[Rfam]
RNA sequence: UAUUAGGUUGGUGCAAAAGUAACUGCAGUUUUUGCCAUUGUUUGUAAUGGCAAAAACUGCAAUUAUUUUUGUACCAACCUAAUA
Numbered sequence: 001u002a003u004u005a006g007g008u009u010g011g012u013g014c015a016a017a018a019g020u021a022a023c024u025g026c027a028g029u030u031u032u033u034g035c036c037a038u039u040g041u042u043u044g045u046a047a048u049g050g051c052a053a054a055a056a057c058u059g060c061a062a063u064u065a066u067u068u069u070u071g072u073a074c075c076a077a078c079c080u081a082a083u084a
Stems, first nucleotide, its partner, number of pairs: 001084022024061017